A member of the RNA family "c-di-AMP riboswitch aptamer (ydaO/yuaA leader)" from Streptacidiphilus pinicola, 175 nucleotides long.
RNA sequence: CCGUCGAGUUCGUCGAGGAUUUCCGAGACGGAGCCGGGGACCCACGUCCUCGGGGUGAAUCGGCAUCAGGUCGGCCGCGACGCGUGCGUGCACGCGAGGCGGCCGUGAGGUGUCGUAGGGCGAGACUUCCGGCCCGAACCCGUCAGCUCACCCGGUAGACGGCCAGGAAGAAGGA
Dot-bracket structure: .((((...((((((............))))))((((((....(........)(((.....(((((((.........................................)))))))..((((..........))))...))).........)))))).))))..............